[Rfam]
The family of this 141-nucleotide RNA sequence from Hipposideros armiger is "Small nucleolar RNA SNORA4". The source organism's lineage runs through Eukaryota, Metazoa, Gnathostomata, Laurasiatheria and Hipposideros. Rfam 15.1 lists 290 matches to the family in 136 species. Pairs were carried over by alignment from the consensus structure, which was predicted with PFOLD. Rfam describes the family as follows. ACA4 is a member of the H/ACA class of snoRNA that guide the sites of modification of uridines to pseudouridines.
RNA sequence: GUACCAAAAGUUGUUUUUUGGGGGAAGGUUUACAAUAACCUUUACCAACUUGGACUAUUUGGGAGAAUAAAGAAAAGACCACGCUCCACAGUGGGCUAUAUCACUAAACAUAUAGUUCACUACUAUUUUGUGGCCUACAUU
Number, nucleotide and partner (000 for none) at each position: 001g000002u000003a000004c062005c061006a060007a059008a058009a000010g000011u000012u057013g056014u000015u054016u053017u052018u000019u000020g000021g050022g049023g046024g045025a000026a043027g040028g039029u038030u037031u000032a000033c000034a000035a000036u000037a030038a029039c028040c027041u000042u000043u026044a000045c024046c023047a000048a000049c022050u021051u000052g017053g016054a015055c000056u013057a012058u008059u007060u006061g005062g004063g000064a000065g000066a000067a000068u000069a000070a000071a000072g000073a000074a000075a000076a136077g135078a000079c133080c132081a131082c130083g129084c000085u000086c000087c000088a000089c000090a121091g120092u119093g118094g117095g116096c115097u114098a113099u112100a111101u110102c000103a000104c000105u000106a000107a000108a000109c000110a101111u100112a099113u098114a097115g096116u095117u094118c093119a092120c091121u090122a000123c000124u000125a000126u000127u000128u000129u083130g082131u081132g080133g079134c000135c077136u076137a000138c000139a000140u000141u000